The record is a 46-nucleotide sequence from Stegodyphus mimosarum, which matches "Histone 3' UTR stem-loop" in Rfam. Rfam describes the family as follows. The mRNAs of metazoan histone genes lack a poly-A tail. 3' end processing occurs at a site between a highly conserved stem-loop (modelled by this family) and a purine rich region around 20 nts downstream (the histone downstream element, or HDE). Gene Ontology term of the family: mRNA 3'-end processing by stem-loop binding and cleavage. The family's RNA type in Rfam is cis-regulatory element. The family's consensus secondary structure is taken from published work. On this family, see Dominski and Marzluff, Gene 1999: "Formation of the 3' end of histone mRNA".
[Rfam]
RNA sequence: AAAACGGCUCUUUUUAGAGCCACACACUUCCUGCAAUGAGUUGUGU
Numbered sequence: 001a002a003a004a005c006g007g008c009u010c011u012u013u014u015u016a017g018a019g020c021c022a023c024a025c026a027c028u029u030c031c032u033g034c035a036a037u038g039a040g041u042u043g044u045g046u
Stems, first nucleotide, its partner, number of pairs: 006021006